[Rfam]
RNA sequence: AUGAAUGCAAUGACAAGGAUAUGAGUAUUUCAUAACGGUUUAUAGAGAGGGAAGGCUAGGCUGGAAACUUCCUAAUACGGAUGAAUUAUUUACCACCUUGGAGCAGUAUUGGUGAAAAAAGAGUAAUCAGUACCGUAGAAGCAACGAUAAUGCUUACACAAAGCCAUCAAUAUGUAACUUAUUGAGUUAUGAGAUGGAAAUUUGGGUGGAACCACGGGUAUUAUACACACUCGUCCCUUCA
Number, nucleotide and partner (000 for none) at each position: 001a000002u000003g000004a000005a000006u000007g104008c103009a000010a000011u000012g000013a000014c000015a099016a098017g097018g096019a000020u000021a000022u000023g000024a000025g000026u000027a000028u000029u085030u084031c083032a082033u081034a000035a000036c000037g000038g076039u075040u074041u000042a000043u000044a000045g000046a000047g000048a000049g073050g072051g071052a070053a069054g068055g000056c000057u000058a000059g000060g000061c000062u000063g000064g000065a000066a000067a000068c054069u053070u052071c051072c050073u049074a040075a039076u038077a000078c000079g000080g000081a033082u032083g031084a030085a029086u000087u000088a000089u000090u000091u000092a000093c000094c000095a000096c018097c017098u016099u015100g000101g000102a000103g008104c007105a000106g000107u132108a131109u130110u129111g128112g127113u126114g000115a000116a000117a000118a000119a000120a000121g000122a000123g000124u000125a000126a113127u112128c111129a110130g109131u108132a107133c000134c146135g145136u144137a000138g000139a000140a000141g000142c000143a000144a136145c135146g134147a000148u000149a000150a000151u000152g000153c000154u000155u000156a000157c000158a000159c000160a000161a000162a000163g000164c197165c196166a195167u194168c193169a000170a000171u000172a000173u000174g000175u000176a000177a000178c000179u000180u000181a000182u000183u000184g000185a000186g000187u000188u000189a000190u000191g000192a000193g168194a167195u166196g165197g164198a000199a000200a000201u000202u000203u000204g237205g236206g235207u000208g000209g000210a000211a000212c000213c000214a234215c233216g232217g231218g230219u000220a000221u000222u000223a000224u000225a000226c000227a000228c000229a000230c218231u217232c216233g215234u214235c206236c205237c204238u000239u000240c000241a000
RNA: T-box leader
Organism: Viridibacillus arenosi